[Rfam]
RNA sequence: AAAUUACCAGAAUUAGAUUAACGAUUGUAAUAUUUAAAAGCCGAGACUUUUUUCUAAAGGGAAAAGUCUCGGCUUUUUUAUUUUAAUUUAUUAGGAAUUUAUACAAACGAAGUAUUUAUGACGAGACUCCUGAGGGAACAGGAUGAGCCGAAGAUUACAGGCUGAGGUUGUCCCCUCGGAAAGCGAAGUCAUAUAAUACGAAGUUUCAUCAUAAGAAGAAAGCGCUAA
Numbered sequence: 001a002a003a004u005u006a007c008c009a010g011a012a013u014u015a016g017a018u019u020a021a022c023g024a025u026u027g028u029a030a031u032a033u034u035u036a037a038a039a040g041c042c043g044a045g046a047c048u049u050u051u052u053u054c055u056a057a058a059g060g061g062a063a064a065a066g067u068c069u070c071g072g073c074u075u076u077u078u079u080a081u082u083u084u085a086a087u088u089u090a091u092u093a094g095g096a097a098u099u100u101a102u103a104c105a106a107a108c109g110a111a112g113u114a115u116u117u118a119u120g121a122c123g124a125g126a127c128u129c130c131u132g133a134g135g136g137a138a139c140a141g142g143a144u145g146a147g148c149c150g151a152a153g154a155u156u157a158c159a160g161g162c163u164g165a166g167g168u169u170g171u172c173c174c175c176u177c178g179g180a181a182a183g184c185g186a187a188g189u190c191a192u193a194u195a196a197u198a199c200g201a202a203g204u205u206u207c208a209u210c211a212u213a214a215g216a217a218g219a220a221a222g223c224g225c226u227a228a
Stems, first nucleotide, its partner, number of pairs: 004214003022043002025040002028037001044069006051063003054059001085205005099110002102107001112199005117193006128180003133176004138171002141168001146163004
Record summary
A member of the RNA family "S. aureus tsr24 small RNA" from Staphylococcus sp. HGB0015, 228 nucleotides long. Pairs were carried over by alignment from the consensus structure, which was predicted with RNAfold. The literature on the family includes a 2016 paper in MBio by Carroll et al., "Genome-wide Annotation, Identification, and Global Transcriptomic Analysis of Regulatory or Small RNA Gene Expression in Staphylococcus aureus". The organism belongs to Staphylococcus, within Bacteria.